[Rfam]
RNA sequence: ACCUAGGGUAGAGGUGCUGUUUUUAAGAGUAUUUAUUUAUAGCUGGCGAGCGAUGAAGAAUAAAAAAAGGAAAAACAGCCGAAGAAGAAUGCUUGGCAGAGUUUUCUUCUGGUUGUAUGCAUAAUAUGUAUAUAACUGUCACUUUAAAUUAUUAUGUCAUACUGGCAUGAUAAUAUGAAGUGGAGAGCUACAAGGAUU
Numbered sequence: 001a002c003c004u005a006g007g008g009u010a011g012a013g014g015u016g017c018u019g020u021u022u023u024u025a026a027g028a029g030u031a032u033u034u035a036u037u038u039a040u041a042g043c044u045g046g047c048g049a050g051c052g053a054u055g056a057a058g059a060a061u062a063a064a065a066a067a068a069g070g071a072a073a074a075a076c077a078g079c080c081g082a083a084g085a086a087g088a089a090u091g092c093u094u095g096g097c098a099g100a101g102u103u104u105u106c107u108u109c110u111g112g113u114u115g116u117a118u119g120c121a122u123a124a125u126a127u128g129u130a131u132a133u134a135a136c137u138g139u140c141a142c143u144u145u146a147a148a149u150u151a152u153u154a155u156g157u158c159a160u161a162c163u164g165g166c167a168u169g170a171u172a173a174u175a176u177g178a179a180g181u182g183g184a185g186a187g188c189u190a191c192a193a194g195g196a197u198u
Stems, first nucleotide, its partner, number of pairs: 008191004016079009032064007083110007091102004111137011139183007
RNA: Lysine riboswitch aptamer